[Rfam]
RNA sequence: AGGGGAAAAAUGCAGUCUCCCCUUGAGACCACGGUCCAAGCGCUGC
Numbered sequence: 001a002g003g004g005g006a007a008a009a010a011u012g013c014a015g016u017c018u019c020c021c022c023u024u025g026a027g028a029c030c031a032c033g034g035u036c037c038a039a040g041c042g043c044u045g046c
Base pairs, nucleotide, nucleotide: 001023002022003021004020005019006018012046013045014044015043016042027036028035029034
Dot-bracket structure: ((((((.....[[[[[.))))))...(((....))).....]]]]]
This 46-nucleotide RNA belongs to the Rfam family "chrB-b RNA".
It is one of the family's seed sequences.
It is annotated as a cis-regulatory element.